[Rfam]
The record is a 58-nucleotide RNA, which matches "Pistol ribozyme" in Rfam. The literature on the family includes a 2015 paper in Nat Chem Biol by Weinberg et al., "New classes of self-cleaving ribozymes revealed by comparative genomics analysis". Gene Ontology term of the family: catalytic activity.

RNA sequence: GCUCGGUGCGGCGAGCCUAAAUAGUGCCUUAGGCCGCACGCGUUAUGCAUAGGUGGCA
Numbered sequence: 001g002c003u004c005g006g007u008g009c010g011g012c013g014a015g016c017c018u019a020a021a022u023a024g025u026g027c028c029u030u031a032g033g034c035c036g037c038a039c040g041c042g043u044u045a046u047g048c049a050u051a052g053g054u055g056g057c058a
Stems, first nucleotide, its partner, number of pairs: 001016004006039006025058004033041001043052003